[Rfam]
RNA: Histone 3' UTR stem-loop
Organism: Nothobranchius furzeri
RNA sequence: CAAACGGCUCUUCUAAGAGCCACCAAACAGCCUUAGAUGCAAAUAAG
Numbered sequence: 001c002a003a004a005c006g007g008c009u010c011u012u013c014u015a016a017g018a019g020c021c022a023c024c025a026a027a028c029a030g031c032c033u034u035a036g037a038u039g040c041a042a043a044u045a046a047g
Base pairs, nucleotide, nucleotide: 006021007020008019009018010017011016